Notes:
The family of this 48-nucleotide RNA from Saccharomonospora saliphila is "L31-Actinobacteria ribosomal protein leader". Rfam classes the family as a cis-regulatory leader. Taxonomically the source falls in Saccharomonospora saliphila (Bacteria, Bacillati, Actinomycetes, Pseudonocardiaceae).
RNA sequence: CCGGCUCCGGUUCACCUCGUGACACGGCGUCACGGGGAUCCGGCGGCC
Numbered sequence: 001c002c003g004g005c006u007c008c009g010g011u012u013c014a015c016c017u018c019g020u021g022a023c024a025c026g027g028c029g030u031c032a033c034g035g036g037g038a039u040c041c042g043g044c045g046g047c048c
Stems, first nucleotide, its partner, number of pairs: 003048003007043004015037009